[Rfam]
RNA sequence: GAGUUGUAUGUGAGAAUUGGAGGGAAUUAAACCAAAUUCAUUGGUAUUACUGCAUAUAUGCCUCUAUUUUGGUUUAAUUUCCUCCAAUAUCUCAUCUACAAUUC
Dot-bracket structure: ...(((((..((((.((((((.((((((((.(((((...............................))))).)))))))).))))))..))))..)))))...
Rfam assigns this 104-nucleotide sequence from Theobroma umbraticum to the family "MIR2275 microRNA precursor family". The family has 13 seed sequences and 785 matches in Rfam 15.1.